[Rfam]
RNA sequence: UCCGCCGUGGUGUAAGGGCAACACCUCGGAUUUUGGUUCCGAUGAUCCAGGUUCGAAUCCUGGCGGCGGAG
Numbered sequence: 001u002c003c004g005c006c007g008u009g010g011u012g013u014a015a016g017g018g019c020a021a022c023a024c025c026u027c028g029g030a031u032u033u034u035g036g037u038u039c040c041g042a043u044g045a046u047c048c049a050g051g052u053u054c055g056a057a058u059c060c061u062g063g064c065g066g067c068g069g070a071g
Stems, first nucleotide, its partner, number of pairs: 001070007010024004026042005047063005
This 71-nucleotide sequence from Actinomycetospora sp. TBRC 11914 belongs to the Rfam family "tRNA". The organism belongs to Actinomycetospora, within Bacteria. The match comes from Rfam's covariance-model search (61 bits). By type it is a transfer RNA. Transfer RNA (tRNA) molecules are approximately 80 nucleotides in length.